[Rfam]
RNA sequence: GCGGACCUACGGGGCCGCAUCACGACAACCGGACCUUUUGGUCCAGAGCACACGGAAGACAGAAA
Numbered sequence: 001g002c003g004g005a006c007c008u009a010c011g012g013g014g015c016c017g018c019a020u021c022a023c024g025a026c027a028a029c030c031g032g033a034c035c036u037u038u039u040g041g042u043c044c045a046g047a048g049c050a051c052a053c054g055g056a057a058g059a060c061a062g063a064a065a
Stems, first nucleotide, its partner, number of pairs: 001018004006014003028042005
L2-Alphaproteobacteria ribosomal protein leader: a 65-nucleotide RNA sequence.